[Rfam]
RNA: c-di-AMP riboswitch aptamer (ydaO/yuaA leader)
RNA sequence: UGAGCGCGGCCGCCGAAUCCGCGGCUCUCGCGGAACCGGGGAACCAAUUUCUGGGGUGAAUCAGCGCCUUCGCGCGCCGUAGGGCACUUCCCAGCCCGAACCCGUCAGCUAACCCGGUAGGCGGUAUGGAAGCGAAGC
Dot-bracket structure: ..........((((...(((((((...)))))))((((((....((.....))(((.....(.((..........)).)..((((........))))...))).........)))))).))))...............